[Rfam]
Nucleotides: 098
Stems, first nucleotide, its partner, number of pairs: 001098003048061005
Number, partner (000 for none) and nucleotide at each position: 001098a002097u003096u004000a005000u006000c007000c008000a009000u010000g011000u012000u013000a014000u015000u016000g017000a018000u019000a020000u021000u022000g023000a024000u025000u026000g027000a028000g029000g030000u031000g032000g033000a034000g035000u036000g037000g038000g039000c040000u041000u042000u043000u044000a045000a046000g047000u048061u049060c050059c051058u052057g053000u054000u055000u056000a057052c058051a059050g060049g061048a062000a063000g064000a065000a066000c067000c068000u069000a070000c071000u072000u073000g074000g075000a076000g077000c078000u079000g080000c081000u082000u083000c084000a085000u086000u087000c088000u089000u090000g091000c092000c093000u094000g095000a096003a097002a098001u